[Rfam]
RNA: Purine riboswitch aptamer
Organism: Halalkalibacter akibai
RNA sequence: UUAUUGUAAAAGUACUACUUUCGUAUAACCUCAAUGAUAUGGUUUGAGGGUAUCUACUUAGGAACCGUAAAUUCCUGGCUACGAAAAAUGUGCAAAUAGCC
Numbered sequence: 001u002u003a004u005u006g007u008a009a010a011a012g013u014a015c016u017a018c019u020u021u022c023g024u025a026u027a028a029c030c031u032c033a034a035u036g037a038u039a040u041g042g043u044u045u046g047a048g049g050g051u052a053u054c055u056a057c058u059u060a061g062g063a064a065c066c067g068u069a070a071a072u073u074c075c076u077g078g079c080u081a082c083g084a085a086a087a088a089u090g091u092g093c094a095a096a097u098a099g100c101c
Stems, first nucleotide, its partner, number of pairs: 019086007029049006058078007